The record is a 136-nucleotide RNA from Platysteira castanea, which matches "U8 small nucleolar RNA" in Rfam. On this family, see Hokii et al., Nucleic Acids Res 2010: "A small nucleolar RNA functions in rRNA processing in Caenorhabditis elegans". Lineage of the source: Eukaryota > Eumetazoa > Amniota > Neoaves > Platysteira. The match comes from Rfam's covariance-model search (45 bits). Rfam 15.1 lists 1,597 matches to the family in 457 species.
RNA sequence: UCGUCAGUGCGGUACAUCCUGACCUGCCCCGCCCUGCGGGCAGCACGUGAUGAGCGCGGCGCGCUGACGUCAGUGAUUAAGUCUCGCGGGCGCGCGGGCCACGCAACAAGGCCCGCGGUCAGCCUCGGACUCUGAC
Numbered sequence: 001u002c003g004u005c006a007g008u009g010c011g012g013u014a015c016a017u018c019c020u021g022a023c024c025u026g027c028c029c030c031g032c033c034c035u036g037c038g039g040g041c042a043g044c045a046c047g048u049g050a051u052g053a054g055c056g057c058g059g060c061g062c063g064c065u066g067a068c069g070u071c072a073g074u075g076a077u078u079a080a081g082u083c084u085c086g087c088g089g090g091c092g093c094g095c096g097g098g099c100c101a102c103g104c105a106a107c108a109a110g111g112c113c114c115g116c117g118g119u120c121a122g123c124c125u126c127g128g129a130c131u132c133u134g135a136c
Stems, first nucleotide, its partner, number of pairs: 024043003028040005068086002072082001074079001090123002093117006